[Rfam]
RNA sequence: GGAGACUUGCGGAAGGCUGUCCCUAGUACGAGAGGACCGGGACGGACGAACCUCUGGUGUGCCAGUCGUUCUGCCAAGGGCGUGGCUGGUUGGCUAUGUUCGGGAGGGAUAACCGCUGAAAGCAUCUAAGCGGGAAGCCUGUUCCUAGAUGAGGUCUCCCACCCCGUUUGUGGGUUAAGGCCCCCAAGAGAUGAUUGGGUUGACAGGCCAGAUAUGGAAGCACUGUAAGGUGUGGAGUUGACUGGUGCUGAUAGGCCGAGG
Numbered sequence: 001g002g003a004g005a006c007u008u009g010c011g012g013a014a015g016g017c018u019g020u021c022c023c024u025a026g027u028a029c030g031a032g033a034g035g036a037c038c039g040g041g042a043c044g045g046a047c048g049a050a051c052c053u054c055u056g057g058u059g060u061g062c063c064a065g066u067c068g069u070u071c072u073g074c075c076a077a078g079g080g081c082g083u084g085g086c087u088g089g090u091u092g093g094c095u096a097u098g099u100u101c102g103g104g105a106g107g108g109a110u111a112a113c114c115g116c117u118g119a120a121a122g123c124a125u126c127u128a129a130g131c132g133g134g135a136a137g138c139c140u141g142u143u144c145c146u147a148g149a150u151g152a153g154g155u156c157u158c159c160c161a162c163c164c165c166g167u168u169u170g171u172g173g174g175u176u177a178a179g180g181c182c183c184c185c186a187a188g189a190g191a192u193g194a195u196u197g198g199g200u201u202g203a204c205a206g207g208c209c210a211g212a213u214a215u216g217g218a219a220g221c222a223c224u225g226u227a228a229g230g231u232g233u234g235g236a237g238u239u240g241a242c243u244g245g246u247g248c249u250g251a252u253a254g255g256c257c258g259a260g261g
Base pairs, nucleotide, nucleotide: 001159002158003157004156005155006154007153008152011145012144013143014142017045018044019043020042021041022040023039047102048101049100050099051098055096056095057094062089063088064087065086066085067082068081069080070079071078072077106140107139108138113133114132115131116130117129162174163173164172176259179257180256181255182254183199184198185197186196187195204250205249206248207246208245209244210243211242214238220233221232222231223230224229
This 261-nucleotide part of an RNA from Saccharopolyspora elongata belongs to the Rfam family "Bacterial large subunit ribosomal RNA".
The base pairs follow the family's consensus structure, which is taken from published work.
Gene Ontology terms of the family: structural constituent of ribosome and ribosome.